Rfam assigns this 133-nucleotide sequence from Peribacillus deserti to the family "Ribosomal protein L20 leader". Gene Ontology term of the family: regulation of gene expression. Lineage of the source: Bacteria > Bacillati > Bacillota > Caryophanales > Peribacillus. Rfam describes the family as follows. This family is a putative r-protein leader autoregulatory structure found in B. subtilis and other low-GC Gram-positive bacteria. It is located in the 5' untranslated regions of mRNAs encoding initiation factor 3 followed by ribosomal proteins L35 and L20 (infC-rpmI-rplT). A Rho-independent transcription terminator structure that is probably involved in regulation is included at the 3' end. Rfam classes the family as a cis-regulatory leader.
RNA sequence: GAGAAAAAGAAGAGGCACCCGCUUCUCACCUGAUCGACGCAUUCUUGCAGUUAACAGGUUCAUGAUGAUUAUCUGACUUUGUCUAUUAAUUAAUCAGUGUGGGUGUAUCUAGCAUCCACACUUUUUUAUUUGC
Numbered sequence: 001g002a003g004a005a006a007a008a009g010a011a012g013a014g015g016c017a018c019c020c021g022c023u024u025c026u027c028a029c030c031u032g033a034u035c036g037a038c039g040c041a042u043u044c045u046u047g048c049a050g051u052u053a054a055c056a057g058g059u060u061c062a063u064g065a066u067g068a069u070u071a072u073c074u075g076a077c078u079u080u081g082u083c084u085a086u087u088a089a090u091u092a093a094u095c096a097g098u099g100u101g102g103g104u105g106u107a108u109c110u111a112g113c114a115u116c117c118a119c120a121c122u123u124u125u126u127u128a129u130u131u132g133c
Stems, first nucleotide, its partner, number of pairs: 011026006028059003036052003039048002098120009